The record is a 93-nucleotide sequence from Kocuria soli, which matches "SAM riboswitch aptamer (S box leader)" in Rfam.
The family's consensus secondary structure is taken from published work.
The source organism's lineage runs through Bacteria, Actinomycetes, Micrococcales, Micrococcaceae and Kocuria.

[Rfam]
RNA sequence: UAUCUAUCCAGAGCGGCUGAGAGACCUGGCUCGUCGACGCCGCAGCAACCAUCCUGUUCGCAGGAACGGUGCUCCCGCCAGGACCGAUGGAGC
Numbered sequence: 001u002a003u004c005u006a007u008c009c010a011g012a013g014c015g016g017c018u019g020a021g022a023g024a025c026c027u028g029g030c031u032c033g034u035c036g037a038c039g040c041c042g043c044a045g046c047a048a049c050c051a052u053c054c055u056g057u058u059c060g061c062a063g064g065a066a067c068g069g070u071g072c073u074c075c076c077g078c079c080a081g082g083a084c085c086g087a088u089g090g091a092g093c
Base pairs, nucleotide, nucleotide: 003091004090005089006088007087008086013043014042015041016040017039021032022031023030026081027080028079029078044073045072046071047070049069050068052064053063077085